The family of this 49-nucleotide RNA sequence from Salmo trutta is "Guanidine-II riboswitch aptamer (mini-ykkC)". Gene Ontology term of the family: regulation of gene expression. Rfam describes the family as follows. Simpler in structure and has fewer highly conserved nucleotide positions than the ykkC-yxkD leader. Despite this each of its two stem-loop structures directly bind free guanidine. Therefore, mini-ykkC RNA motif represents a distinct class of guanidine-sensing RNAs. Its crystal structure was also determined. NCBI's taxonomy places the organism under Eukaryota, Vertebrata, Actinopterygii, Actinopteri, Salmo. The family's consensus secondary structure is taken from published work.
[Rfam]
RNA sequence: GGGGGGACGACCCCCCAGAUACAGACCACUACCGGGGGGGACGACCCCC
Numbered sequence: 001g002g003g004g005g006g007a008c009g010a011c012c013c014c015c016c017a018g019a020u021a022c023a024g025a026c027c028a029c030u031a032c033c034g035g036g037g038g039g040g041a042c043g044a045c046c047c048c049c
Base pairs, nucleotide, nucleotide: 001016002015003014004013005012006011036049037048038047039046040045